[Rfam]
RNA: Archaeal large subunit ribosomal RNA, nucleotides 692 to 957
Organism: uncultured Nitrososphaerota archaeon
RNA sequence: GAGUUCAUCCCAAUGGCGAGUUUAAGGGCUUUAAAGCCCGAAGGCGAAGGGAAACCGAUACUCCGCAGCCCCGAAAGGGGCGAGGGAGGGGGUGUGAAAGCGCCCCAUAGCCAUUGGGAUGAGACUAGAAACCGAGCGAUCUUGCCCCGGGCAGGGCGAAGCCGGGGGAAACCCCGGUGGAGGCCCGCAAGGGUCCUGACGUGCAGUUCGGUCCCCUGACCUGGGGCAAGGGGCCAAAAACCAAUCUAGCUCGGUGAUAGCUAGUU
Dot-bracket structure: ....(((((((((((((..((((..((((......))))..))))...((....))....((((...((((......))))...))))..((((......)))).....)))))))))))))..((.(...((((((...((((((((((((.((((...(((((((....)))))))....))))....(((.((.((........)))).)))..).))))))))))).((.......))......))))))......).))..
Numbered sequence: 001g002a003g004u005u006c007a008u009c010c011c012a013a014u015g016g017c018g019a020g021u022u023u024a025a026g027g028g029c030u031u032u033a034a035a036g037c038c039c040g041a042a043g044g045c046g047a048a049g050g051g052a053a054a055c056c057g058a059u060a061c062u063c064c065g066c067a068g069c070c071c072c073g074a075a076a077g078g079g080g081c082g083a084g085g086g087a088g089g090g091g092g093u094g095u096g097a098a099a100g101c102g103c104c105c106c107a108u109a110g111c112c113a114u115u116g117g118g119a120u121g122a123g124a125c126u127a128g129a130a131a132c133c134g135a136g137c138g139a140u141c142u143u144g145c146c147c148c149g150g151g152c153a154g155g156g157c158g159a160a161g162c163c164g165g166g167g168g169a170a171a172c173c174c175c176g177g178u179g180g181a182g183g184c185c186c187g188c189a190a191g192g193g194u195c196c197u198g199a200c201g202u203g204c205a206g207u208u209c210g211g212u213c214c215c216c217u218g219a220c221c222u223g224g225g226g227c228a229a230g231g232g233g234c235c236a237a238a239a240a241c242c243a244a245u246c247u248a249g250c251u252c253g254g255u256g257a258u259a260g261c262u263a264g265u266u
Stems, first nucleotide, its partner, number of pairs: 005122013020045004026039004049056002061088004068081004091104004125264002128261001132254006141230011152218001154186004161178007191215003195211002198209002232242002